[Rfam]
RNA sequence: GGUCUUAUGUAUACGGGCCGAGAUUUCAUCGGACACCAGACCGUUAGGACUGAUGAGGCGCCCGAGAUAAGUAAAACG
Numbered sequence: 001g002g003u004c005u006u007a008u009g010u011a012u013a014c015g016g017g018c019c020g021a022g023a024u025u026u027c028a029u030c031g032g033a034c035a036c037c038a039g040a041c042c043g044u045u046a047g048g049a050c051u052g053a054u055g056a057g058g059c060g061c062c063c064g065a066g067a068u069a070a071g072u073a074a075a076a077c078g
Stems, first nucleotide, its partner, number of pairs: 002077002005074002008071001010069003016063002020061001022059001024058007
Shown here is a 78-nucleotide sequence from Schistosoma japonicum, a member of the family "mir-3492 microRNA precursor family". Taxonomically the source falls in Schistosoma (Eukaryota, Spiralia, Digenea, Strigeidida). Gene Ontology terms of the family: miRNA-mediated post-transcriptional gene silencing and RISC complex. The base pairs follow the family's consensus structure, which was predicted with RNAalifold.